[Rfam]
RNA sequence: CGUUACCUCACUGGAGAGAGGUGCCGGACCAUCGAGUCACGGCAUCCACCGAAGGAGCAACCCGCAGAGUGUUUGGUUCAACAACCGAACGCUCCCGGCGAAUCUCUCAGGUAAAGCGGACAGCGAGGGCAAG
Numbered sequence: 001c002g003u004u005a006c007c008u009c010a011c012u013g014g015a016g017a018g019a020g021g022u023g024c025c026g027g028a029c030c031a032u033c034g035a036g037u038c039a040c041g042g043c044a045u046c047c048a049c050c051g052a053a054g055g056a057g058c059a060a061c062c063c064g065c066a067g068a069g070u071g072u073u074u075g076g077u078u079c080a081a082c083a084a085c086c087g088a089a090c091g092c093u094c095c096c097g098g099c100g101a102a103u104c105u106c107u108c109a110g111g112u113a114a115a116g117c118g119g120a121c122a123g124c125g126a127g128g129g130c131a132a133g
Stems, first nucleotide, its partner, number of pairs: 006128004011123003020046007048112003051108002055106003062098003
RNA: Glycine riboswitch aptamer
Organism: Limnohabitans sp. Rim28